[Rfam]
RNA sequence: AGCCAAAAAAUGCCGAAUCUCUACUUGGGUACGGAGGAACCGAUUUUGGGGGUGAAUCCCCUUUUUUACGAGCGAGGGUGUCGCUUUUCAUUUUUAUUCCGAGAUUACUUGGAUAUCCAAGUAAUCUGUGACAACCCCUUGGUUUUCGGUGUUUAAAUUAUAGAACACUGAUUUUCGUGUGGAAGGGGUAGGGAAUUCCUUGCCCGAACCCGACAGCUAACUCCGGAGGCAAAAAAGGAAAGGAGAA
Numbered sequence: 001a002g003c004c005a006a007a008a009a010a011u012g013c014c015g016a017a018u019c020u021c022u023a024c025u026u027g028g029g030u031a032c033g034g035a036g037g038a039a040c041c042g043a044u045u046u047u048g049g050g051g052g053u054g055a056a057u058c059c060c061c062u063u064u065u066u067u068a069c070g071a072g073c074g075a076g077g078g079u080g081u082c083g084c085u086u087u088u089c090a091u092u093u094u095u096a097u098u099c100c101g102a103g104a105u106u107a108c109u110u111g112g113a114u115a116u117c118c119a120a121g122u123a124a125u126c127u128g129u130g131a132c133a134a135c136c137c138c139u140u141g142g143u144u145u146u147c148g149g150u151g152u153u154u155a156a157a158u159u160a161u162a163g164a165a166c167a168c169u170g171a172u173u174u175u176c177g178u179g180u181g182g183a184a185g186g187g188g189u190a191g192g193g194a195a196u197u198c199c200u201u202g203c204c205c206g207a208a209c210c211c212g213a214c215a216g217c218u219a220a221c222u223c224c225g226g227a228g229g230c231a232a233a234a235a236a237g238g239a240a241a242g243g244a245g246a247a
Base pairs, nucleotide, nucleotide: 011231012230013229014228019029020028032225033224034223035222036221041049050211051210052209058188059187060186061185062184063183064182065181191205192204193203
A member of the RNA family "c-di-AMP riboswitch aptamer (ydaO/yuaA leader)" from Desulforamulus ferrireducens, 247 nucleotides long. The organism belongs to Desulforamulus, within Bacteria. A reference for the family is Barrick et al. (2004), "New RNA motifs suggest an expanded scope for riboswitches in bacterial genetic control", Proc Natl Acad Sci U S A. This family represents a conserved RNA structure found upstream of the ydaO and yuaA genes in Bacillus subtilis and related genes in other bacteria. The ydaO/yuaA element is thought to act as a genetic 'off' switch for the ydaO and yuaA genes in its native state.